[Rfam]
RNA sequence: GGGACGUGAUGAGUUUUACAUUGGUCCGUGUUUCUGAAUCACCGUGACCGACUACUUUUACCAAUUUCUGAUCUC
Numbered sequence: 001g002g003g004a005c006g007u008g009a010u011g012a013g014u015u016u017u018a019c020a021u022u023g024g025u026c027c028g029u030g031u032u033u034c035u036g037a038a039u040c041a042c043c044g045u046g047a048c049c050g051a052c053u054a055c056u057u058u059u060a061c062c063a064a065u066u067u068c069u070g071a072u073c074u075c
Base pairs, nucleotide, nucleotide: 001075002074003073004072
Source information:
This 75-nucleotide sequence from Abrus precatorius belongs to the Rfam family "Small nucleolar RNA SNORD18". Rfam classes the family as a C/D-box small nucleolar RNA. Pairs were carried over by alignment from the consensus structure, which was predicted with PFOLD. Its Rfam clan is "SNORD18 clan". The family has 16 seed sequences and 2,622 matches in Rfam 15.1. Lineage of the source: Eukaryota > Tracheophyta > eudicotyledons > Fabales > Abrus.